Rfam assigns this 103-nucleotide sequence from Molossus molossus to the family "Small nucleolar RNA SNORD46". A reference for the family is Nicoloso et al. (1996), "Intron-encoded, antisense small nucleolar RNAs: the characterization of nine novel species points to their direct role as guides for the 2'-O-ribose methylation of rRNAs", J Mol Biol. The base pairs follow the family's consensus structure. NCBI's taxonomy places the organism under Eukaryota, Craniata, Eutheria, Chiroptera, Molossus. From the family's description: U40 is a C/D box small nucleolar RNA, also known as snoZ153 in plants. The human sequence has also been annotated in the sequence databases as U46. U40 is encoded in intron 2 of the ribosomal protein S8 gene in human, and is hypothesised to guide methylation of 2'-O-ribose residues on 28S ribosomal RNA. This family represents vertebrate U40. It scores 111 bits against the family's covariance model. The family is grouped with related families in Rfam's "SNORD46 clan". It is annotated as a C/D-box small nucleolar RNA.

RNA sequence: AACUAGAGUGAUGAAAAAAUACCCUUAGGCGUGGUGUGAUCGUCUUGGUCACCUGUGUGCCACUUGCCAAUGCUAGGAUUUGUCAUAGUUACACUGACUUGUU
Numbered sequence: 001a002a003c004u005a006g007a008g009u010g011a012u013g014a015a016a017a018a019a020u021a022c023c024c025u026u027a028g029g030c031g032u033g034g035u036g037u038g039a040u041c042g043u044c045u046u047g048g049u050c051a052c053c054u055g056u057g058u059g060c061c062a063c064u065u066g067c068c069a070a071u072g073c074u075a076g077g078a079u080u081u082g083u084c085a086u087a088g089u090u091a092c093a094c095u096g097a098c099u100u101g102u103u
Stems, first nucleotide, its partner, number of pairs: 001103003005099002